[Rfam]
The family of this 73-nucleotide sequence from Danio rerio is "mir-216 microRNA precursor family".
NCBI's taxonomy places the organism under Eukaryota, Actinopterygii, Osteoglossocephalai, Danionidae, Danio.
The sequence is in the family's curated seed alignment.
On this family, see Lim et al., Science 2003: "Vertebrate microRNA genes".
RNA sequence: UGACUGGGUAAUCUCUGCAGGCAACUGUGAUGUGAUUACAGUCUCACAUUGACCUGAAGAGGUUGAGCAGUCU
Numbered sequence: 001u002g003a004c005u006g007g008g009u010a011a012u013c014u015c016u017g018c019a020g021g022c023a024a025c026u027g028u029g030a031u032g033u034g035a036u037u038a039c040a041g042u043c044u045c046a047c048a049u050u051g052a053c054c055u056g057a058a059g060a061g062g063u064u065g066a067g068c069a070g071u072c073u
Stems, first nucleotide, its partner, number of pairs: 003071004009065008020055002024050001026048005